[Rfam]
RNA sequence: AUAAUGAUACUUCCGUUCAGUCCUAAAGUCGAGCGUGAUAAGACCGUCGCAACAAAGGAGAGCGGCUCGGAGAGAUCCUCGGAGUGGUGAAAUUCCAAUGA
Numbered sequence: 001a002u003a004a005u006g007a008u009a010c011u012u013c014c015g016u017u018c019a020g021u022c023c024u025a026a027a028g029u030c031g032a033g034c035g036u037g038a039u040a041a042g043a044c045c046g047u048c049g050c051a052a053c054a055a056a057g058g059a060g061a062g063c064g065g066c067u068c069g070g071a072g073a074g075a076u077c078c079u080c081g082g083a084g085u086g087g088u089g090a091a092a093u094u095c096c097a098a099u100g101a
Base pairs, nucleotide, nucleotide: 012098013065014064015063016062017061018060066084067083068082070080071079072078085097086096087095
The family of this 101-nucleotide sequence is "pemK RNA". It is one of the family's seed sequences.